[Rfam]
RNA: RT-19 RNA
RNA sequence: ACUACCUCCCGCACGGGAAGCGAGGAGGCACAGCCCCGGCCAGUUCCGAAAAUCAAACCGAGAAGGCGGCCGGUAGACGCAUCGAAAGCCGCCA
Numbered sequence: 001a002c003u004a005c006c007u008c009c010c011g012c013a014c015g016g017g018a019a020g021c022g023a024g025g026a027g028g029c030a031c032a033g034c035c036c037c038g039g040c041c042a043g044u045u046c047c048g049a050a051a052a053u054c055a056a057a058c059c060g061a062g063a064a065g066g067c068g069g070c071c072g073g074u075a076g077a078c079g080c081a082u083c084g085a086a087a088g089c090c091g092c093c094a
Stems, first nucleotide, its partner, number of pairs: 005028005010022003066092005076083002